[Rfam]
RNA: RNase MRP
Organism: Antrodiella citrinella
RNA sequence: GCGCCGUCAGAAGAACCGCCAUCGCAGCUCACGCACAGGGAGUCCUAGCACUCCUACCUUCUAGCUGCGGGGAAAGUCCCCGGAGAGGCAGAGACACGUUUUCCCCUCACACCGUCCCGGAAAUCGACCGUCCCUAAGCACGACGGGCUCGAGGGGAAGACGGCCAGGAUGUUCUGCGUGUGGUCUCGCCUCGAUCGCGAGGAGGGACCGCCGCUACGCCAGGCCAGCUUUGCGGUCCAUCUUCAUGUCUGGUGCAUUCGGCAAGGGCGCGGAGGACGCGAAGAUAUGAGCGACUUUCGUGCUUGGGUGCACUGGGCGUGGGUGGGCUACCGUUGCUCAUAGACAUAGUUAUGCGGUUUGCGUUGUCUUCACCGACACGUUAACAGAAUGGGGCUCACUCUCUGUCGGCG
Numbered sequence: 001g002c003g004c005c006g007u008c009a010g011a012a013g014a015a016c017c018g019c020c021a022u023c024g025c026a027g028c029u030c031a032c033g034c035a036c037a038g039g040g041a042g043u044c045c046u047a048g049c050a051c052u053c054c055u056a057c058c059u060u061c062u063a064g065c066u067g068c069g070g071g072g073a074a075a076g077u078c079c080c081c082g083g084a085g086a087g088g089c090a091g092a093g094a095c096a097c098g099u100u101u102u103c104c105c106c107u108c109a110c111a112c113c114g115u116c117c118c119g120g121a122a123a124u125c126g127a128c129c130g131u132c133c134c135u136a137a138g139c140a141c142g143a144c145g146g147g148c149u150c151g152a153g154g155g156g157a158a159g160a161c162g163g164c165c166a167g168g169a170u171g172u173u174c175u176g177c178g179u180g181u182g183g184u185c186u187c188g189c190c191u192c193g194a195u196c197g198c199g200a201g202g203a204g205g206g207a208c209c210g211c212c213g214c215u216a217c218g219c220c221a222g223g224c225c226a227g228c229u230u231u232g233c234g235g236u237c238c239a240u241c242u243u244c245a246u247g248u249c250u251g252g253u254g255c256a257u258u259c260g261g262c263a264a265g266g267g268c269g270c271g272g273a274g275g276a277c278g279c280g281a282a283g284a285u286a287u288g289a290g291c292g293a294c295u296u297u298c299g300u301g302c303u304u305g306g307g308u309g310c311a312c313u314g315g316g317c318g319u320g321g322g323u324g325g326g327c328u329a330c331c332g333u334u335g336c337u338c339a340u341a342g343a344c345a346u347a348g349u350u351a352u353g354c355g356g357u358u359u360g361c362g363u364u365g366u367c368u369u370c371a372c373c374g375a376c377a378c379g380u381u382a383a384c385a386g387a388a389u390g391g392g393g394c395u396c397a398c399u400c401u402c403u404g405u406c407g408g409c410g
Base pairs, nucleotide, nucleotide: 002410003409004408005407006406008404009403010402011401014358015357016356017355018354019353022070023069024068025067026066027065028064039054040053041052042051043050075395076394078393079392080391081390184202185201186200187199188198189197204330206328211325212324216319217318218317219316220314221313222312360380361379362378363377